The family of this 344-nucleotide RNA from Croceicoccus naphthovorans is "Alphaproteobacteria transfer-messenger RNA".

[Rfam]
RNA sequence: UCACUUCACAUUAAGCGAUCCAUCGCUAUAUGGAGUCGUGCCGGUUUCGGCCGGCUAUGGCGAUAAAUUGCGGUGUGCAAUAGGCACAGCGGACCCGGGGGCAGUACCCGGCGGCUCCACCAAAUGCUCCGUUGUCGGGGGCUGGAUCAUGGGGCCGAACCAGGAUCGACGUGUGUUGAAAGGCACUGUUUUCGCCCGGGCUGAGUAACCCGUUCAAGGCUCAAAACACACAAGUGCCAACGAUAACGAAGCACUCGCUCUCGCUGCGUAACCUGACGGCCUAACGGCCUGAUCUUACAAAGCUAAAGCGCGGUUGGACCCACCGGGCAACAGAAGGGAUACCG
Numbered sequence: 001u002c003a004c005u006u007c008a009c010a011u012u013a014a015g016c017g018a019u020c021c022a023u024c025g026c027u028a029u030a031u032g033g034a035g036u037c038g039u040g041c042c043g044g045u046u047u048c049g050g051c052c053g054g055c056u057a058u059g060g061c062g063a064u065a066a067a068u069u070g071c072g073g074u075g076u077g078c079a080a081u082a083g084g085c086a087c088a089g090c091g092g093a094c095c096c097g098g099g100g101g102c103a104g105u106a107c108c109c110g111g112c113g114g115c116u117c118c119a120c121c122a123a124a125u126g127c128u129c130c131g132u133u134g135u136c137g138g139g140g141g142c143u144g145g146a147u148c149a150u151g152g153g154g155c156c157g158a159a160c161c162a163g164g165a166u167c168g169a170c171g172u173g174u175g176u177u178g179a180a181a182g183g184c185a186c187u188g189u190u191u192u193c194g195c196c197c198g199g200g201c202u203g204a205g206u207a208a209c210c211c212g213u214u215c216a217a218g219g220c221u222c223a224a225a226a227c228a229c230a231c232a233a234g235u236g237c238c239a240a241c242g243a244u245a246a247c248g249a250a251g252c253a254c255u256c257g258c259u260c261u262c263g264c265u266g267c268g269u270a271a272c273c274u275g276a277c278g279g280c281c282u283a284a285c286g287g288c289c290u291g292a293u294c295u296u297a298c299a300a301a302g303c304u305a306a307a308g309c310g311c312g313g314u315u316g317g318a319c320c321c322a323c324c325g326g327g328c329a330a331c332a333g334a335a336g337g338g339a340u341a342c343c344g
Stems, first nucleotide, its partner, number of pairs: 040055005059196005070189007085175003089172003095111005112157007197212004202223003311325004316342001318340001320338002